Rfam assigns this 268-nucleotide RNA from Ceratodon purpureus to the family "RNase MRP". It is annotated as a ribozyme.
RNA sequence: AUGCAUGGUGAAGGGGUGCUUCUGCCCCCUGGAGAUAACAUGUCUGUGAAGGUUUACUUUCUGUCCGUGGCCCACUCCAUGGGUGCAGAGUGAAAUUCCCCGAGCAGUUCAAGACAGAGAUGCCGUUCCGAAAGGGAAGACCUGCUCCGGGGCCUGUCCAGUGGCGUAGAAAGUUUGAUUACCGGUCCCCGAGCAGUAGCUUGCUACAGCGCAGCCAUGCAACCCCACCCGCAAGGGUGAACAGAAUGGGGAUUACUCUCACCAUGCC
Numbered sequence: 001a002u003g004c005a006u007g008g009u010g011a012a013g014g015g016g017u018g019c020u021u022c023u024g025c026c027c028c029c030u031g032g033a034g035a036u037a038a039c040a041u042g043u044c045u046g047u048g049a050a051g052g053u054u055u056a057c058u059u060u061c062u063g064u065c066c067g068u069g070g071c072c073c074a075c076u077c078c079a080u081g082g083g084u085g086c087a088g089a090g091u092g093a094a095a096u097u098c099c100c101c102g103a104g105c106a107g108u109u110c111a112a113g114a115c116a117g118a119g120a121u122g123c124c125g126u127u128c129c130g131a132a133a134g135g136g137a138a139g140a141c142c143u144g145c146u147c148c149g150g151g152g153c154c155u156g157u158c159c160a161g162u163g164g165c166g167u168a169g170a171a172a173g174u175u176u177g178a179u180u181a182c183c184g185g186u187c188c189c190c191g192a193g194c195a196g197u198a199g200c201u202u203g204c205u206a207c208a209g210c211g212c213a214g215c216c217a218u219g220c221a222a223c224c225c226c227a228c229c230c231g232c233a234a235g236g237g238u239g240a241a242c243a244g245a246a247u248g249g250g251g252a253u254u255a256c257u258c259u260c261a262c263c264a265u266g267c268c
Base pairs, nucleotide, nucleotide: 003267004266005265006264007263008262009261010260011259014224015223017221018220019219021090022088023087024086025085094254095253096252098251099250100249101248113124115122116121126137127136128135129134139200142196143195144194145193146192147191149190150189151188152187154184156182157181226239227238228237229236230235
Dot-bracket structure: ..(((((((((..[[.[[[.(((((...........................................................)))).)...(((.((((...........(.((....)).).((((....)))).(..((((((.((((.(.((.......................)).)..))))))))))...)..................]]].]].(((((....)))))........)))))))....))))))))).

The family's consensus secondary structure is taken from published work. The match comes from Rfam's covariance-model search (53 bits). The organism belongs to Ceratodon, within Eukaryota. Its Rfam clan is "RNaseP clan".